Shown here is an 86-nucleotide RNA from Morella rubra, a member of the family "Small nucleolar RNA R44/J54/Z268 family".
Rfam links the family to the GO terms nucleolus and RNA processing.
Its Rfam clan is "SNORD74 clan".
Rfam 15.1 lists 1,168 matches to the family in 228 species.
The organism belongs to Morella, within Eukaryota.
It scores 82 bits against the family's covariance model.

[Rfam]
RNA sequence: UCUGCAAGUGAUGAUAAAACAGACAGGGACAUCAGUACUCCUUUGGAGAAUGUUGACUUGUUCUUUGGGAAUCUCUCUGAUGCAGU
Numbered sequence: 001u002c003u004g005c006a007a008g009u010g011a012u013g014a015u016a017a018a019a020c021a022g023a024c025a026g027g028g029a030c031a032u033c034a035g036u037a038c039u040c041c042u043u044u045g046g047a048g049a050a051u052g053u054u055g056a057c058u059u060g061u062u063c064u065u066u067g068g069g070a071a072u073c074u075c076u077c078u079g080a081u082g083c084a085g086u
Stems, first nucleotide, its partner, number of pairs: 002085005